RNA sequence: CAGCCAGCGAGACAUGUAUUCCAAAUGCGUUUAAAAAGCGCGGAAAUCCGCCAGCAGACCGCUAAUGCAGCGUUAAUACUUGAGUCACUGGCUAGGCAAUCCCCCCACUGCCUGGCCAGAUGAGGUCGCCUGGAUUGCGAUUUCAUACUCCUAAUGGUCUUGGCCCGGUUUCUCAGGAAUCCGG
Numbered sequence: 001c002a003g004c005c006a007g008c009g010a011g012a013c014a015u016g017u018a019u020u021c022c023a024a025a026u027g028c029g030u031u032u033a034a035a036a037a038g039c040g041c042g043g044a045a046a047u048c049c050g051c052c053a054g055c056a057g058a059c060c061g062c063u064a065a066u067g068c069a070g071c072g073u074u075a076a077u078a079c080u081u082g083a084g085u086c087a088c089u090g091g092c093u094a095g096g097c098a099a100u101c102c103c104c105c106c107a108c109u110g111c112c113u114g115g116c117c118a119g120a121u122g123a124g125g126u127c128g129c130c131u132g133g134a135u136u137g138c139g140a141u142u143u144c145a146u147a148c149u150c151c152u153a154a155u156g157g158u159c160u161u162g163g164c165c166c167g168g169u170u171u172c173u174c175a176g177g178a179a180u181c182c183g184g
Base pairs, nucleotide, nucleotide: 040159044155088119089118090117092115093114095112097110098109121145122144123143124142125141126140127139128138129137165184166183167182168181170179171178172177

Background: A member of the RNA family "RgsA sRNA" from Stutzerimonas stutzeri, 184 nucleotides long. The organism belongs to Stutzerimonas stutzeri, within Bacteria. The literature on the family includes a 2006 paper in Nucleic Acids Res by Livny et al., "Identification of 17 Pseudomonas aeruginosa sRNAs and prediction of sRNA-encoding genes in 10 diverse pathogens using the bioinformatic tool sRNAPredict2". Its family is annotated with response to hydrogen peroxide, response to oxidative stress and sRNA-mediated gene silencing in the Gene Ontology. Pairs were carried over by alignment from the consensus structure, which was predicted with RNAalifold. Rfam describes the family as follows. This small RNA (sRNA) was computationally identified in the genome of the opportunistic pathogen Pseudomonas aeruginosa and its expression verified by northern blot analysis. P16 sRNA appears to be conserved across several Pseudomonas species and Azotobacter vinelandii.